Record summary:
This 83-nucleotide sequence from Candidatus Izimoplasma sp. ZiA1 belongs to the Rfam family "c-di-GMP-I riboswitch aptamer". The family is grouped with related families in Rfam's "c-di-GMP_I riboswitch clan".
[Rfam]
RNA sequence: AUAUUCAAAGGGCAAAUACAUAGAAAUGUGUAGACGCAAAGUCACAGAGCUAAAGGUUAACCUAUGCUGGCUGGGCCGCAAUA
Numbered sequence: 001a002u003a004u005u006c007a008a009a010g011g012g013c014a015a016a017u018a019c020a021u022a023g024a025a026a027u028g029u030g031u032a033g034a035c036g037c038a039a040a041g042u043c044a045c046a047g048a049g050c051u052a053a054a055g056g057u058u059a060a061c062c063u064a065u066g067c068u069g070g071c072u073g074g075g076c077c078g079c080a081a082u083a
Stems, first nucleotide, its partner, number of pairs: 012037002017032006041076003045073003048068003055062002

The family's consensus secondary structure is taken from published work. Rfam 15.1 lists 5,092 matches to the family in 1,772 species. The source organism's lineage runs through Bacteria, Mycoplasmatota, Mollicutes, Candidatus Izemoplasmataceae and Candidatus Izemoplasma.